[Rfam]
RNA sequence: GCUAAGGGGCUCGCGAACACCCCGUGAGGCUUCGGCCAAAGUUUCGCGUCCUGAAUUAACACCCAAACCAUGGGAGGACGCGACAUG
Numbered sequence: 001g002c003u004a005a006g007g008g009g010c011u012c013g014c015g016a017a018c019a020c021c022c023c024g025u026g027a028g029g030c031u032u033c034g035g036c037c038a039a040a041g042u043u044u045c046g047c048g049u050c051c052u053g054a055a056u057u058a059a060c061a062c063c064c065a066a067a068c069c070a071u072g073g074g075a076g077g078a079c080g081c082g083a084c085a086u087g
Base pairs, nucleotide, nucleotide: 006023007022008021009020046081047080048079049078050077051076

A member of the RNA family "chrB-a RNA" from Rhodobacteraceae bacterium HTCC2083, 87 nucleotides long.
The family's RNA type in Rfam is cis-regulatory element.
Rfam 15.1 lists 347 matches to the family in 339 species.